[Rfam]
The family of this 353-nucleotide RNA from Aestuariirhabdus litorea is "Bacterial RNase P class A". Lineage of the source: Bacteria > Pseudomonadati > Gammaproteobacteria > Aestuariirhabdaceae > Aestuariirhabdus. By type it is a ribozyme.
RNA sequence: UGAGUCAGCCAGGCAGUCGCCGCAGCCAUCAGGUUGGGGAGGAAAGUCCGGGCUCCAUAGGGUAAGACGCCAGGUAACGCCUGGGGGGCGCAAGCCUACGGAAAGUGCAGCAGAGAGUAGACCGCCUAAGCAGAUUUUUCUGCCGGUAAGGGUGAAAGGGUGCGGUAAGAGCGCACCGCAUGCGUGGUAACACGUCAUGGCAUGGUAAACCCCGUCUGGAGCAAGACCAAAUAGGAAUCCUAUAGGUGUGUACCCGCACUGGAUUCGGGUAGGUUGCUUGAGGUGUGCAGUGAUGUACACCCUAGAUGAAUGACUGUCCAAGACAGAACCCGGCUUAUCGGCUGACUCACAUU
Numbered sequence: 001u002g003a004g005u006c007a008g009c010c011a012g013g014c015a016g017u018c019g020c021c022g023c024a025g026c027c028a029u030c031a032g033g034u035u036g037g038g039g040a041g042g043a044a045a046g047u048c049c050g051g052g053c054u055c056c057a058u059a060g061g062g063u064a065a066g067a068c069g070c071c072a073g074g075u076a077a078c079g080c081c082u083g084g085g086g087g088g089c090g091c092a093a094g095c096c097u098a099c100g101g102a103a104a105g106u107g108c109a110g111c112a113g114a115g116a117g118u119a120g121a122c123c124g125c126c127u128a129a130g131c132a133g134a135u136u137u138u139u140c141u142g143c144c145g146g147u148a149a150g151g152g153u154g155a156a157a158g159g160g161u162g163c164g165g166u167a168a169g170a171g172c173g174c175a176c177c178g179c180a181u182g183c184g185u186g187g188u189a190a191c192a193c194g195u196c197a198u199g200g201c202a203u204g205g206u207a208a209a210c211c212c213c214g215u216c217u218g219g220a221g222c223a224a225g226a227c228c229a230a231a232u233a234g235g236a237a238u239c240c241u242a243u244a245g246g247u248g249u250g251u252a253c254c255c256g257c258a259c260u261g262g263a264u265u266c267g268g269g270u271a272g273g274u275u276g277c278u279u280g281a282g283g284u285g286u287g288c289a290g291u292g293a294u295g296u297a298c299a300c301c302c303u304a305g306a307u308g309a310a311u312g313a314c315u316g317u318c319c320a321a322g323a324c325a326g327a328a329c330c331c332g333g334c335u336u337a338u339c340g341g342c343u344g345a346c347u348c349a350c351a352u353u
Base pairs, nucleotide, nucleotide: 001349002348003347004346005345006344007343008342009341010340011338012318013317014316015315016314017313018312020039021038023036024035025034026033027032044336045335046334048333049332050331051330052329053221054220055219056218060254061253063252065217066216067215068214069213070084071083072082073081074080085099086097087096088095089094100212101211105210106209107206108205122151123150124147125146126145130143131142132141133140134139159177160176161175162174163173164172178201179199180198181197182196184193185192186191225275226274227273228272235266236265237264238263239262240261246259247258248257249256250255282301283300284299285298286297287296288295289294